[Rfam]
Description:
This 117-nucleotide RNA from Streptomyces ruber belongs to the Rfam family "Streptomyces-metK RNA". Pairs were carried over by alignment from the consensus structure, which is taken from published work. NCBI's taxonomy places the organism under Bacteria, Bacillati, Actinomycetota, Streptomycetaceae, Streptomyces. The family's RNA type in Rfam is small RNA. A search with the family's covariance model found it, with a score of 109 bits.
Nucleotides: 117
Base pairs, nucleotide, nucleotide: 048079049078050077051076052075057071058070059069060068093104094103095102096101
Number, partner (000 for none) and nucleotide at each position: 001000g002000c003000g004000a005000g006000a007000c008000g009000g010000g011000u012000g013000g014000g015000a016000c017000c018000g019000c020000g021000g022000c023000g024000a025000a026000g027000c028000g029000c030000g031000a032000c033000c034000c035000g036000u037000a038000a039000a040000c041000u042000g043000u044000u045000c046000u047000c048079g049078g050077a051076c052075g053000a054000c055000g056000c057071c058070g059069g060068g061000c062000g063000c064000a065000g066000c067000c068060c069059c070058c071057g072000u073000c074000c075052c076051g077050u078049c079048c080000a081000c082000c083000c084000a085000u086000g087000a088000u089000c090000a091000g092000c093104c094103a095102g096101c097000a098000g099000c100000c101096g102095c103094u104093g105000c106000a107000a108000c109000c110000c111000c112000a113000g114000g115000g116000a117000g